Record summary: Rfam assigns this 69-nucleotide RNA sequence to the family "skipping-rope RNA". The family's RNA type in Rfam is small RNA. Rfam's curators put it in the seed alignment.

RNA sequence: GGCUAUUGAGGAUAGAACAGGUAUCUAUCGCCUUUAAUUGGAGAUGUGGGUUACCAACCACCAAUAGCC
Numbered sequence: 001g002g003c004u005a006u007u008g009a010g011g012a013u014a015g016a017a018c019a020g021g022u023a024u025c026u027a028u029c030g031c032c033u034u035u036a037a038u039u040g041g042a043g044a045u046g047u048g049g050g051u052u053a054c055c056a057a058c059c060a061c062c063a064a065u066a067g068c069c
Stems, first nucleotide, its partner, number of pairs: 001069008011029005020055004031041001046061004